[Rfam]
RNA sequence: UCUAUCCUUGUCUUUGGGGAGCAAAGUAUUCAAUGAUCGUUUAGUGAGGGUACUGUUGCUGAAGCCCAUUAUGAAAUAAAACCCGCAUCCACGCAUUAUGUCAUGAGAUGCAAUUUUUGCGGGC
Dot-bracket structure: ....((((.......)))).(((((((((((......(.....)...))))))).)))).........................((((((..(((...)))...).))))).............